[Rfam]
RNA sequence: ACCGCACGCAAACCCAAAGGUCAUUAACCCGAUACGUGCGAUGACCUACGCUACACGUGCGCAAAGAAACGAGAACCUUGUCGCCUUUUAUCGGCUCCGUGUGCCAAUAGAAGUGAAUUCAAGGUCCGACAUUC
Number, nucleotide and partner (000 for none) at each position: 001a000002c000003c061004g060005c059006a058007c057008g056009c000010a000011a000012a000013c000014c000015c000016a000017a000018a000019g046020g045021u044022c043023a042024u041025u040026a000027a000028c000029c000030c000031g000032a000033u000034a000035c000036g000037u000038g000039c000040g025041a024042u023043g022044a021045c020046c019047u000048a000049c000050g000051c000052u000053a000054c000055a000056c008057g007058u006059g005060c004061g003062c000063a000064a000065a000066g000067a000068a000069a000070c000071g000072a000073g127074a000075a125076c124077c123078u122079u121080g000081u000082c000083g000084c000085c113086u112087u111088u110089u109090a108091u107092c000093g105094g104095c103096u000097c000098c000099g000100u000101g000102u000103g095104c094105c093106a000107a091108u090109a089110g088111a087112a086113g085114u000115g000116a000117a000118u000119u000120c000121a079122a078123g077124g076125u075126c000127c073128g000129a000130c000131a000132u000133u000134c000

Small nucleolar RNA SNORA68: a 134-nucleotide sequence from Pangasianodon hypophthalmus. Rfam's curators write: U68 is a member of the H/ACA class of small nucleolar RNAs (snoRNAs) which act as guides in the the modification of uridines to pseudouridines. The organism belongs to Pangasianodon, within Eukaryota. Rfam links the family to the GO terms RNA processing and nucleolus. The match comes from Rfam's covariance-model search (62 bits).